The record is a 443-nucleotide sequence from Dactylonectria estremocensis, which matches "RNase MRP" in Rfam. The family's consensus secondary structure is taken from published work. From the family's description: RNase MRP is an enzymatically active ribonucleoprotein with two distinct roles in eukaryotes. Rfam classes the family as a ribozyme. On this family, see Walker and Avis, Biochem Biophys Res Commun 2005: "Secondary structure probing of the human RNase MRP RNA reveals the potential for MRP RNA subsets".
[Rfam]
RNA sequence: UUCUCGUUCAAAAAAUCGCUAUUCGGAGCUCACACACAGAGACGCUCGCUCCGGCAGCGUCUCCCUCCCCCAGGCUCUGGGAGAAAGUCCCCGGACGUCUCUUUACUGAGAAUGCGGAAACGCGCCGCCAUAAAAGCACAGCGGCUGACCUCCGCGCCCAGGCCCUCUCCUUCUGCCGACCCUGUCCACCGUUUAUACUCUUGUAACCAAACCAGACCCGAGAAGUCUAUUCGCGCCUCCUAGACCUUAUGGAUGAAGAUAUGAGUCCGAGCCAGGUGGGAGCGACGGGCCUUUCGACUGGAGCGUGACCGGGAGGAGGCGAACAGACGUCUGGUGCCUGCGAGUGUGGCGUCGGGCGCAGAGGACUUGUUGUCGAGGUUGAUAGGUAUGCGAUUGCCCAGCGAAAGCUAGGUUACUCAAUGGGGCUCAUUCUUGACGCGAGG
Numbered sequence: 001u002u003c004u005c006g007u008u009c010a011a012a013a014a015a016u017c018g019c020u021a022u023u024c025g026g027a028g029c030u031c032a033c034a035c036a037c038a039g040a041g042a043c044g045c046u047c048g049c050u051c052c053g054g055c056a057g058c059g060u061c062u063c064c065c066u067c068c069c070c071c072a073g074g075c076u077c078u079g080g081g082a083g084a085a086a087g088u089c090c091c092c093g094g095a096c097g098u099c100u101c102u103u104u105a106c107u108g109a110g111a112a113u114g115c116g117g118a119a120a121c122g123c124g125c126c127g128c129c130a131u132a133a134a135a136g137c138a139c140a141g142c143g144g145c146u147g148a149c150c151u152c153c154g155c156g157c158c159c160a161g162g163c164c165c166u167c168u169c170c171u172u173c174u175g176c177c178g179a180c181c182c183u184g185u186c187c188a189c190c191g192u193u194u195a196u197a198c199u200c201u202u203g204u205a206a207c208c209a210a211a212c213c214a215g216a217c218c219c220g221a222g223a224a225g226u227c228u229a230u231u232c233g234c235g236c237c238u239c240c241u242a243g244a245c246c247u248u249a250u251g252g253a254u255g256a257a258g259a260u261a262u263g264a265g266u267c268c269g270a271g272c273c274a275g276g277u278g279g280g281a282g283c284g285a286c287g288g289g290c291c292u293u294u295c296g297a298c299u300g301g302a303g304c305g306u307g308a309c310c311g312g313g314a315g316g317a318g319g320c321g322a323a324c325a326g327a328c329g330u331c332u333g334g335u336g337c338c339u340g341c342g343a344g345u346g347u348g349g350c351g352u353c354g355g356g357c358g359c360a361g362a363g364g365a366c367u368u369g370u371u372g373u374c375g376a377g378g379u380u381g382a383u384a385g386g387u388a389u390g391c392g393a394u395u396g397c398c399c400a401g402c403g404a405a406a407g408c409u410a411g412g413u414u415a416c417u418c419a420a421u422g423g424g425g426c427u428c429a430u431u432c433u434u435g436a437c438g439c440g441a442g443g
Base pairs, nucleotide, nucleotide: 002443003442004441005440006439007438008436009435010434011433014395015394016393017392018391019390023081024079025078026077027076028075029074039063040062041061042060043059044058045057086427087426089425090424091423092422113124114123115122116121326366328364330362331361332360333359337355338354340350341349343347397412398411400409401408402407